[Rfam]
RNA sequence: UAACGUGCGUUGACAGGGACUAGUAAAUAAUUGAAGGUGCGCUAGAGAACAGCAUCCAUCGGCUGGAAGAUGCUCCGCUCCGUUCUUAUUGAACCUGCCCUUGAGCUAUUCGGACAAAAACCGAAUCGUUUUCUUCACGUUACGAAGCGAUUAAGUGAGUACGCGUUCGUCGUAUUAACAAAGGUGGUACCGCGGGUAAAGCCUCUCCCCGUCCUUUUU
Numbered sequence: 001u002a003a004c005g006u007g008c009g010u011u012g013a014c015a016g017g018g019a020c021u022a023g024u025a026a027a028u029a030a031u032u033g034a035a036g037g038u039g040c041g042c043u044a045g046a047g048a049a050c051a052g053c054a055u056c057c058a059u060c061g062g063c064u065g066g067a068a069g070a071u072g073c074u075c076c077g078c079u080c081c082g083u084u085c086u087u088a089u090u091g092a093a094c095c096u097g098c099c100c101u102u103g104a105g106c107u108a109u110u111c112g113g114a115c116a117a118a119a120a121c122c123g124a125a126u127c128g129u130u131u132u133c134u135u136c137a138c139g140u141u142a143c144g145a146a147g148c149g150a151u152u153a154a155g156u157g158a159g160u161a162c163g164c165g166u167u168c169g170u171c172g173u174a175u176u177a178a179c180a181a182a183g184g185u186g187g188u189a190c191c192g193c194g195g196g197u198a199a200a201g202c203c204u205c206u207c208c209c210c211g212u213c214c215u216u217u218u219u
Stems, first nucleotide, its partner, number of pairs: 007106002015101004026090005039078002051074006109125005127139003158176006181216004192212005
Source information:
Shown here is a 219-nucleotide RNA from Sporolactobacillus inulinus, a member of the family "T-box leader". Uncharged tRNA acts as the effector for transcription antitermination of genes in the T-box leader family. Lineage of the source: Bacteria > Bacillati > Caryophanales > Sporolactobacillaceae > Sporolactobacillus. Its family is annotated with tRNA binding in the Gene Ontology. It is annotated as a cis-regulatory leader.